Source information
Rfam assigns this 122-nucleotide sequence from Acidovorax sp. HDW3 to the family "Burkholderia RNA 11". Rfam's curators write: Co-purified with Hfq, expression confirmed by Northern blot. Predicted target marZ. Overlaps coding sequence. The organism belongs to Acidovorax, within Bacteria. It is annotated as a small RNA.

[Rfam]
RNA sequence: GCAACCUGCGGCUGGCGCACGAGAACAUCGUCGUCUUUCGCUCGCUGCUGGGCAUUUCGUGGAUGUGGUUCUUUGGCGCGGUGUUUUUGUCGCAAUUCCCCAGCUUUGCCAAGCAGGUGCUG
Numbered sequence: 001g002c003a004a005c006c007u008g009c010g011g012c013u014g015g016c017g018c019a020c021g022a023g024a025a026c027a028u029c030g031u032c033g034u035c036u037u038u039c040g041c042u043c044g045c046u047g048c049u050g051g052g053c054a055u056u057u058c059g060u061g062g063a064u065g066u067g068g069u070u071c072u073u074u075g076g077c078g079c080g081g082u083g084u085u086u087u088u089g090u091c092g093c094a095a096u097u098c099c100c101c102a103g104c105u106u107u108g109c110c111a112a113g114c115a116g117g118u119g120c121u122g
Stems, first nucleotide, its partner, number of pairs: 010049003014045001017042001021038003025034002051121005057115001060112001062110001063105001067099002072094001074092005080087002